[Rfam]
RNA sequence: UCGGAUGAGGACAGCCUUAGAGACUUUUUUAAAGCGCCGAAGAAGCAAAGUAUGGAAUUCAUCUUGUCCAUAUGGAAACUGACAGGCAAAAGGAAGGCAGUCUGACGAUACUUUGGAGAGAACGAUUUAAUUCGUCGCCUACGAGGAUAUAACCAACUGGCAAAAGGACAGAGAU
Numbered sequence: 001u002c003g004g005a006u007g008a009g010g011a012c013a014g015c016c017u018u019a020g021a022g023a024c025u026u027u028u029u030u031a032a033a034g035c036g037c038c039g040a041a042g043a044a045g046c047a048a049a050g051u052a053u054g055g056a057a058u059u060c061a062u063c064u065u066g067u068c069c070a071u072a073u074g075g076a077a078a079c080u081g082a083c084a085g086g087c088a089a090a091a092g093g094a095a096g097g098c099a100g101u102c103u104g105a106c107g108a109u110a111c112u113u114u115g116g117a118g119a120g121a122a123c124g125a126u127u128u129a130a131u132u133c134g135u136c137g138c139c140u141a142c143g144a145g146g147a148u149a150u151a152a153c154c155a156a157c158u159g160g161c162a163a164a165a166g167g168a169c170a171g172a173g174a175u
Stems, first nucleotide, its partner, number of pairs: 001108003010102003014098004022035001024034004036087003042083001044080002050073007111173005120136001122135004137161003143157001145154002